RNA sequence: GUAGUGGUUUUGGUGUGCGGCAUUUUCGUUUGUAGCUUUUUGAAGUGAGAAUCUGCCCCUAAAGAGACUCUCUUUGCCCUAUAAGUUGUAGUGUAAGACUACGCUCCCGCAAGUAGCGUUAUUUGGGU
Numbered sequence: 001g002u003a004g005u006g007g008u009u010u011u012g013g014u015g016u017g018c019g020g021c022a023u024u025u026u027c028g029u030u031u032g033u034a035g036c037u038u039u040u041u042g043a044a045g046u047g048a049g050a051a052u053c054u055g056c057c058c059c060u061a062a063a064g065a066g067a068c069u070c071u072c073u074u075u076g077c078c079c080u081a082u083a084a085g086u087u088g089u090a091g092u093g094u095a096a097g098a099c100u101a102c103g104c105u106c107c108c109g110c111a112a113g114u115a116g117c118g119u120u121a122u123u124u125g126g127g128u
Stems, first nucleotide, its partner, number of pairs: 003071002006069005019057004025051003035046004087103006
The record is a 128-nucleotide sequence from Helicobacter enhydrae, which matches "purD RNA motif" in Rfam.
The source organism's lineage runs through Bacteria, Campylobacterota, Epsilonproteobacteria, Helicobacteraceae and Helicobacter.
The family's consensus secondary structure is taken from published work.